[Rfam]
RNA sequence: AAAAAAUUAAAAGCGCCAGAACUUAAGAGCGCCUAGACCAAAUCAAAGAUUUGAUUAGAAUUAGGAAACUCAGAGAUCACUACGUUCUCUCUGAGUAAGUUCGCCUAAGCCAAAUCGAAGAUUUGAGGCUCACUUAAGUUGACGAGGUUGGGAGUUAUCGAACUUUUCGGCGGGUGCCCCACGGUAUCGCACUACCGUUAACGAUUGGCAAAGCUAUGGAGCGAUUCGUAGUACAAAUCCAAUCUGGUGUUAAAA
Number, nucleotide and partner (000 for none) at each position: 001a000002a000003a000004a000005a000006a000007u000008u000009a000010a000011a000012a000013g000014c000015g000016c000017c000018a000019g000020a140021a139022c138023u137024u136025a135026a134027g133028a000029g131030c000031g000032c000033c000034u000035a000036g000037a000038c000039c000040a000041a000042a000043u000044c000045a000046a000047a000048g000049a000050u000051u000052u000053g000054a000055u000056u000057a000058g000059a000060a000061u000062u000063a000064g000065g000066a000067a000068a000069c000070u000071c000072a000073g000074a000075g000076a000077u000078c000079a000080c000081u000082a000083c000084g000085u000086u000087c000088u000089c000090u000091c000092u000093g000094a000095g000096u000097a000098a000099g000100u000101u000102c000103g000104c000105c000106u000107a000108a000109g000110c000111c000112a000113a000114a000115u000116c000117g000118a000119a000120g000121a000122u000123u000124u000125g000126a000127g000128g000129c000130u000131c029132a000133c027134u026135u025136a024137a023138g022139u021140u020141g000142a000143c000144g000145a000146g000147g000148u000149u181150g180151g179152g178153a000154g000155u000156u000157a000158u170159c169160g168161a167162a000163c000164u000165u000166u000167u161168c160169g159170g158171c000172g000173g000174g000175u000176g000177c000178c152179c151180c150181a149182c197183g196184g195185u194186a193187u000188c000189g000190c000191a000192c000193u186194a185195c184196c183197g182198u000199u000200a000201a000202c000203g244204a243205u242206u241207g240208g000209c000210a000211a000212a000213g000214c231215u230216a229217u228218g227219g226220a225221g000222c000223g000224a000225u220226u219227c218228g217229u216230a215231g214232u000233a000234c000235a000236a000237a000238u000239c000240c207241a206242a205243u204244c203245u000246g000247g000248u000249g000250u000251u000252a000253a000254a000255a000